[Rfam]
The record is a 105-nucleotide sequence from Molossus molossus, which matches "Vault RNA" in Rfam. The base pairs follow the family's consensus structure, which is taken from published work. It is annotated as a non-coding RNA gene. Lineage of the source: Eukaryota > Chordata > Sarcopterygii > Eutheria > Molossus.
RNA sequence: GGGCUGGAUUUAGCAUAGUGGUUCCUUUGCAUCAAACUUUCAGUUCGCUCGCCACUCUUGUCCGCGAGAGCGGUUGGAGACCCGCGGGUGCUCUCCAACCCUAUU
Dot-bracket structure: .((.(((.....((.(.((((....(((................................................)))..))))).)).....))).)).....